[Rfam]
RNA: Betaproteobacteria toxic small RNA
Organism: Massilia horti
RNA sequence: UGUCUCCUCUAUUCUUCCUUUGAAAAAUAGAUUCAAGCCCGUUUUCAUCCGACGGGCUUUUUUUC
Number, nucleotide and partner (000 for none) at each position: 001u000002g000003u000004c000005u000006c000007c000008u031009c030010u029011a028012u027013u026014c000015u024016u000017c000018c000019u000020u000021u000022g000023a000024a015025a000026a013027a012028u011029a010030g009031a008032u000033u000034c000035a000036a058037g057038c056039c055040c054041g053042u052043u051044u000045u000046c000047a000048u000049c000050c000051g043052a042053c041054g040055g039056g038057c037058u036059u000060u000061u000062u000063u000064u000065c000